[Rfam]
RNA sequence: CUUAAAUAAGAAGCACAUAGCAAUUUGAGAGCGGAAUCCCGAUUUAUCAGUCUUUGAUUGCGAUAAGCAAAUGAAAAAAACAGGUUAAAUCAUUUGAUUCCCUGCUAAAAAUCCCUGUCAAAAUUUGUUUGGCAGGGAUUUUUGU
Numbered sequence: 001c002u003u004a005a006a007u008a009a010g011a012a013g014c015a016c017a018u019a020g021c022a023a024u025u026u027g028a029g030a031g032c033g034g035a036a037u038c039c040c041g042a043u044u045u046a047u048c049a050g051u052c053u054u055u056g057a058u059u060g061c062g063a064u065a066a067g068c069a070a071a072u073g074a075a076a077a078a079a080a081c082a083g084g085u086u087a088a089a090u091c092a093u094u095u096g097a098u099u100c101c102c103u104g105c106u107a108a109a110a111a112u113c114c115c116u117g118u119c120a121a122a123a124u125u126u127g128u129u130u131g132g133c134a135g136g137g138a139u140u141u142u143u144g145u
Base pairs, nucleotide, nucleotide: 010100011099012098044077045076047074048073049072051069053067054066055065056064083091084090109141110140111139112138113137114136115135116134117133118132119131120130121129122128
Rfam assigns this 145-nucleotide RNA to the family "Listeria sRNA rli38".
The base pairs follow the family's consensus structure, which was predicted with RNAalifold.